[Rfam]
Ribosomal S15 leader: a 135-nucleotide RNA from Aliikangiella coralliicola. Its Rfam clan is "Ribosomal Protein S15 Leader clan". A search with the family's covariance model found it, with a score of 86 bits. The family's consensus secondary structure is taken from published work. It is annotated as a cis-regulatory leader. Taxonomically the source falls in Aliikangiella (Bacteria, Pseudomonadati, Pseudomonadota, Pleioneaceae).
RNA sequence: UGACAUGGCUGAAUUAGUGAUCGGCUGUGUUGUUUGUUAAGUCGUACUAUUGAAGUAGUACUAAUUGGAGUAUUUUAUAUGUCACUAACUGCUGAAGCAAAAGCUAAGAUUGUUGCAGAAUAUGCACGUGGUGAA
Numbered sequence: 001u002g003a004c005a006u007g008g009c010u011g012a013a014u015u016a017g018u019g020a021u022c023g024g025c026u027g028u029g030u031u032g033u034u035u036g037u038u039a040a041g042u043c044g045u046a047c048u049a050u051u052g053a054a055g056u057a058g059u060a061c062u063a064a065u066u067g068g069a070g071u072a073u074u075u076u077a078u079a080u081g082u083c084a085c086u087a088a089c090u091g092c093u094g095a096a097g098c099a100a101a102a103g104c105u106a107a108g109a110u111u112g113u114u115g116c117a118g119a120a121u122a123u124g125c126a127c128g129u130g131g132u133g134a135a
Stems, first nucleotide, its partner, number of pairs: 007026006050088002067086002070083001